[Rfam]
RNA sequence: AGACUGGGUAAUCUCUGCAGGCAACUGUGUUGUGUUUUAAUUCCUCACAUUUACCUGGAGAGAUUCUGCAGUCU
Numbered sequence: 001a002g003a004c005u006g007g008g009u010a011a012u013c014u015c016u017g018c019a020g021g022c023a024a025c026u027g028u029g030u031u032g033u034g035u036u037u038u039a040a041u042u043c044c045u046c047a048c049a050u051u052u053a054c055c056u057g058g059a060g061a062g063a064u065u066c067u068g069c070a071g072u073c074u
Base pairs, nucleotide, nucleotide: 003072004071005070006069010065011064012063013062014061015060016059020056021055023052024051026049027048028047029046

The family of this 74-nucleotide RNA sequence from Conger conger is "mir-216 microRNA precursor family". Pairs were carried over by alignment from the consensus structure, which was predicted with WAR. It scores 64 bits against the family's covariance model. Its family is annotated with miRNA-mediated post-transcriptional gene silencing and RISC complex in the Gene Ontology. The organism belongs to Conger, within Eukaryota.